[Rfam]
RNA sequence: CAAGCUCUUUUUUGUAGUGCGCUCGUCGCUAAACCAACAGACGCGGUGUACGAAACUGGAGAG
Numbered sequence: 001c002a003a004g005c006u007c008u009u010u011u012u013u014g015u016a017g018u019g020c021g022c023u024c025g026u027c028g029c030u031a032a033a034c035c036a037a038c039a040g041a042c043g044c045g046g047u048g049u050a051c052g053a054a055a056c057u058g059g060a061g062a063g
Base pairs, nucleotide, nucleotide: 005063006062007061008060009059017051018050019049020048021047022046023045024043025042026041027040
Shown here is a 63-nucleotide sequence from Trypanosoma cruzi, a member of the family "Trypanosomatid snoRNA TB11Cs2H1". Rfam 15.1 lists 72 matches to the family in 17 species. Rfam links the family to the GO terms RNA processing and nucleolus.